[Rfam]
RNA sequence: GCGGCGCGGCGGCUCCGUUCGCCGGAGGAGCGUGCAGCGUGCUAGCGCCGCGUGCUGCUUCGUCGAACGGCGCCGACCACGUUGC
Dot-bracket structure: ((((((.(...(.((((((((.(((.(.(((((((.(((......))).))))))).).))).))))))).).)...).))))))